[Rfam]
RNA sequence: CACACACGGACUCUGGUUUCUGCCCGGGAGAAAUCCGGCUGAGACCCCCCGGUGGCGUUUCGAGCAAUCAAGCGAAAAGCGUCAUGGUCCGUGGAGGCUAACCGGAAAAGGAAAUGA
Dot-bracket structure: (.(.(((((((...((......(..(........).)........))......((((((..................))))))...)))))))).).....................
RNA: rpsB sRNA
Organism: Aminobacter sp. MSH1